[Rfam]
RNA sequence: GAGCGAUAAGAGUAAACCUGUCCAAAGACAGGGACGCAAAGCUAUAGGGUCUAGGUGCUUACAGUUCAAAAGUCAGUUAUUAAC
Numbered sequence: 001g002a003g004c005g006a007u008a009a010g011a012g013u014a015a016a017c018c019u020g021u022c023c024a025a026a027g028a029c030a031g032g033g034a035c036g037c038a039a040a041g042c043u044a045u046a047g048g049g050u051c052u053a054g055g056u057g058c059u060u061a062c063a064g065u066u067c068a069a070a071a072g073u074c075a076g077u078u079a080u081u082a083a084c
Stems, first nucleotide, its partner, number of pairs: 012037002017032006040078004047074002050069001057065002
The record is an 84-nucleotide RNA from Syntrophobotulus glycolicus, which matches "c-di-GMP-I riboswitch aptamer" in Rfam. It scores 40 bits against the family's covariance model.